This 62-nucleotide sequence from a Desulfuromonadales bacterium belongs to the Rfam family "L20-Deltaproteobacteria ribosomal protein leader". Rfam classes the family as a cis-regulatory leader. NCBI's taxonomy places the organism under Bacteria, Pseudomonadati, Thermodesulfobacteriota, Desulfuromonadia, Desulfuromonadales. The base pairs follow the family's consensus structure, which is taken from published work. It scores 58 bits against the family's covariance model. On this family, see Eckert and Weinberg, BMC Microbiol 2020: "Discovery of 20 novel ribosomal leader candidates in bacteria and archaea".
[Rfam]
RNA sequence: UGCCAUGAACCAUGAGGAAACUGUCUCCCCUUAUGGAUCUGGCCACUACAGCAGCAAAGGAG
Numbered sequence: 001u002g003c004c005a006u007g008a009a010c011c012a013u014g015a016g017g018a019a020a021c022u023g024u025c026u027c028c029c030c031u032u033a034u035g036g037a038u039c040u041g042g043c044c045a046c047u048a049c050a051g052c053a054g055c056a057a058a059g060g061a062g
Stems, first nucleotide, its partner, number of pairs: 003042003007039002010036008